[Rfam]
RNA: Burkholderia sRNA Bp1_Cand684_SIPHT
Organism: Paraburkholderia fynbosensis
RNA sequence: AGAAAAGUAAGUGCCGCCCCGCAGAGGGGCGACGCCAAUAGACCGACAGGAAUGCAGGUUCUACAAAAGUGCGCGGAUCACAGACAAACAGUCAGCGCCCCGCGCAACAUCA
Numbered sequence: 001a002g003a004a005a006a007g008u009a010a011g012u013g014c015c016g017c018c019c020c021g022c023a024g025a026g027g028g029g030c031g032a033c034g035c036c037a038a039u040a041g042a043c044c045g046a047c048a049g050g051a052a053u054g055c056a057g058g059u060u061c062u063a064c065a066a067a068a069g070u071g072c073g074c075g076g077a078u079c080a081c082a083g084a085c086a087a088a089c090a091g092u093c094a095g096c097g098c099c100c101c102g103c104g105c106a107a108c109a110u111c112a
Stems, first nucleotide, its partner, number of pairs: 012075003015031006059066002096104003